[Rfam]
RNA sequence: GUCCUAUCGCGCGACUGGCGAGCUAACGUGGAAUCGACCACGGUGAAGCGCGAAGGGUUCCGACGCCGAUCGCCUGGGCAACCAAU
Dot-bracket structure: ..(((.((((((..(.[[[[[......((((......))))...)..)))))).))).......(((..]]]]]..))).......
About this RNA: ZMP/ZTP riboswitch aptamer (pfl RNA motif): an 86-nucleotide RNA sequence from Bradyrhizobium diazoefficiens. The base pairs follow the family's consensus structure, which is taken from published work. Lineage of the source: Bacteria > Pseudomonadota > Alphaproteobacteria > Hyphomicrobiales > Bradyrhizobium diazoefficiens.